[Rfam]
RNA: SAH (S-adenosyl-L-homocysteine) riboswitch aptamer
Organism: Mycoavidus cysteinexigens
RNA sequence: CGUUUCGAGGAGCGCUGCGACGGAAUUUCCGCCAGGCUCGAAGCACAACCUUAGCCCGCCUAUGGCGGGUCGUAUCAAACGGCGCUCACGUCUU
Numbered sequence: 001c002g003u004u005u006c007g008a009g010g011a012g013c014g015c016u017g018c019g020a021c022g023g024a025a026u027u028u029c030c031g032c033c034a035g036g037c038u039c040g041a042a043g044c045a046c047a048a049c050c051u052u053a054g055c056c057c058g059c060c061u062a063u064g065g066c067g068g069g070u071c072g073u074a075u076c077a078a079a080c081g082g083c084g085c086u087c088a089c090g091u092c093u094u
Base pairs, nucleotide, nucleotide: 002044003043004042005041006040007039008038021031022030023029024028